[Rfam]
Nucleotides: 093
Stems, first nucleotide, its partner, number of pairs: 024092004046085007053077003056073002060069003
Number, partner (000 for none) and nucleotide at each position: 001000u002000c003000c004000u005000a006000c007000c008000u009000u010000a011000c012000u013000c014000g015000a016000a017000a018000u019000a020000a021000a022000a023000c024092c025091c026090g027089u028000c029000g030000a031000u032000g033000a034000a035000g036000a037000c038000c039000a040000a041000u042000a043000a044000a045000u046085g047084a048083c049082g050081a051080a052079u053077c054076c055075u056073a057072g058000a059000a060069u061068c062067c063000u064000u065000g066000a067062g068061g069060a070000a071000a072057c073056u074000g075055a076054g077053g078000c079052a080051u081050u082049u083048g084047u085046c086000u087000g088000a089027g090026c091025g092024g093000g

The family of this 93-nucleotide RNA from Caenorhabditis angaria is "Caenorhabditis sRNA ceN23-1". By type it is a small RNA. A search with the family's covariance model found it, with a score of 73 bits. A reference for the family is Jia et al. (2007), "Systematic identification of non-coding RNA 2,2,7-trimethylguanosine cap structures in Caenorhabditis elegans", BMC Mol Biol.